Shown here is a 108-nucleotide RNA from Salmonella enterica, a member of the family "Enterobacterial sRNA STnc380". It is one of the family's seed sequences. Taxonomically the source falls in Salmonella enterica subsp. enterica serovar Schwarzengrund (Bacteria, Pseudomonadati, Enterobacteriaceae, Salmonella).
RNA sequence: UGAACAUGUGGCCGGAUUUAGCGGGAAUUGGUAGGGCCAAUUAAGGGGUGAGGACAACAAAGGGAAGUGAAAAGGCAAUGGCAUAAUGCCAUUGCCUUUGAUGUCGGG
Number, nucleotide and partner (000 for none) at each position: 001u000002g000003a000004a000005c000006a000007u000008g058009u057010g000011g055012c000013c000014g000015g000016a000017u000018u000019u000020a000021g000022c048023g000024g000025g000026a042027a041028u040029u039030g038031g037032u036033a000034g000035g000036g032037c031038c030039a029040a028041u027042u026043a000044a000045g000046g000047g000048g022049u000050g000051a000052g000053g000054a000055c011056a000057a009058c008059a000060a000061a000062g000063g000064g105065a104066a000067g000068u000069g000070a000071a099072a098073a097074g096075g095076c094077a093078a092079u091080g090081g089082c088083a087084u000085a000086a000087u083088g082089c081090c080091a079092u078093u077094g076095c075096c074097u073098u072099u071100g000101a000102u000103g000104u065105c064106g000107g000108g000